A member of the RNA family "mir-7563 microRNA precursor family" from Ameiurus melas, 76 nucleotides long.

RNA sequence: ACCGUGUACUUACCUACUAUAUAGUAGUAGAAAUACAUGCAUCUCGGCUACUAUAUAGUAGAUAAGUACGCGGUUU
Numbered sequence: 001a002c003c004g005u006g007u008a009c010u011u012a013c014c015u016a017c018u019a020u021a022u023a024g025u026a027g028u029a030g031a032a033a034u035a036c037a038u039g040c041a042u043c044u045c046g047g048c049u050a051c052u053a054u055a056u057a058g059u060a061g062a063u064a065a066g067u068a069c070g071c072g073g074u075u076u
Stems, first nucleotide, its partner, number of pairs: 001074012014061002017058011030045002033042002
The organism belongs to Ameiurus, within Eukaryota.